Rfam assigns this 74-nucleotide RNA sequence from Anopheles darlingi to the family "mir-33 microRNA precursor family". The family's consensus secondary structure was predicted with PFOLD.
[Rfam]
RNA sequence: CUGCGGGUGCAUUGUAGUUGCAUUGCACCUUCCGUGUUGGCAACCGGUGCAGUACUUCUGCAAUGCAAGCCCGG
Numbered sequence: 001c002u003g004c005g006g007g008u009g010c011a012u013u014g015u016a017g018u019u020g021c022a023u024u025g026c027a028c029c030u031u032c033c034g035u036g037u038u039g040g041c042a043a044c045c046g047g048u049g050c051a052g053u054a055c056u057u058c059u060g061c062a063a064u065g066c067a068a069g070c071c072c073g074g
Base pairs, nucleotide, nucleotide: 001074002073003072005071007070008067009066010065011064012063013062014061015060016059017058020055022053023052024051025050026049027048028047

Rfam links the family to the GO terms gene silencing by miRNA and RISC complex.